[Rfam]
RNA sequence: UCCCCCGCUUAACCUCCCUGAGCGGGUGCCUUAAUCCCCUUAAGGCGUCUUCGCCCCCGGCCUCCCCCUUUUGGCCGGGGGUUUCUUAU
Numbered sequence: 001u002c003c004c005c006c007g008c009u010u011a012a013c014c015u016c017c018c019u020g021a022g023c024g025g026g027u028g029c030c031u032u033a034a035u036c037c038c039c040u041u042a043a044g045g046c047g048u049c050u051u052c053g054c055c056c057c058c059g060g061c062c063u064c065c066c067c068c069u070u071u072u073g074g075c076c077g078g079g080g081g082u083u084u085c086u087u088a089u
Stems, first nucleotide, its partner, number of pairs: 004026006028046007054081008

Rfam assigns this 89-nucleotide RNA from Sulfurisoma sediminicola to the family "Burkholderia RNA 7 (anti-hemB)".
Rfam links the family to the GO terms bacterial biofilm matrix and protein binding.
The literature on the family includes a 2013 paper in Genomics by Ramos et al., "Experimental identification of small non-coding regulatory RNAs in the opportunistic human pathogen Burkholderia cenocepacia J2315".
This RNA motif was identified by computational search in b-proteobacteria Burkholderia. Co-purified with Hfq, expression confirmed by Northern blot.